[Rfam]
RNA sequence: AAACGUUCUCAGGGCAGGGUGAAAAUCCCUACCGGCGGUAAGGGUUUAUAAAACCUAAGCCCGCGAGCGCUUUUAAGUUCUUCCUUAAGGGCAUUUGCCUUGGUUGAGUUUAACUUGGUUGAGUUUAAAAGGUCUGCAGAUCUGGUGAAACUCCAGAGCCGACGGUUACAGUCCGGAUGAAAGAGAACACGA
Numbered sequence: 001a002a003a004c005g006u007u008c009u010c011a012g013g014g015c016a017g018g019g020u021g022a023a024a025a026u027c028c029c030u031a032c033c034g035g036c037g038g039u040a041a042g043g044g045u046u047u048a049u050a051a052a053a054c055c056u057a058a059g060c061c062c063g064c065g066a067g068c069g070c071u072u073u074u075a076a077g078u079u080c081u082u083c084c085u086u087a088a089g090g091g092c093a094u095u096u097g098c099c100u101u102g103g104u105u106g107a108g109u110u111u112a113a114c115u116u117g118g119u120u121g122a123g124u125u126u127a128a129a130a131g132g133u134c135u136g137c138a139g140a141u142c143u144g145g146u147g148a149a150a151c152u153c154c155a156g157a158g159c160c161g162a163c164g165g166u167u168a169c170a171g172u173c174c175g176g177a178u179g180a181a182a183g184a185g186a187a188c189a190c191g192a
Stems, first nucleotide, its partner, number of pairs: 005188006017029003031172002033161002035064004059159002067137003141157005163175003